[Rfam]
RNA sequence: AGUGUUUUUCGUUCCACUUAAAUCGAAACGA
Numbered sequence: 001a002g003u004g005u006u007u008u009u010c011g012u013u014c015c016a017c018u019u020a021a022a023u024c025g026a027a028a029c030g031a
Stems, first nucleotide, its partner, number of pairs: 001018004009031005014025001
A member of the RNA family "Pseudoknot of upstream pseudoknot domain (UPD) of the 3'UTR" from Pomovirus betae, 31 nucleotides long. The literature on the family includes a 1996 paper in RNA by Felden et al., "A central pseudoknotted three-way junction imposes tRNA-like mimicry and the orientation of three 5' upstream pseudoknots in the 3' terminus of tobacco mosaic virus RNA". It is annotated as a cis-regulatory element. Taxonomically the source falls in Pomovirus betae (Viruses, Riboviria, Orthornavirae, Martellivirales).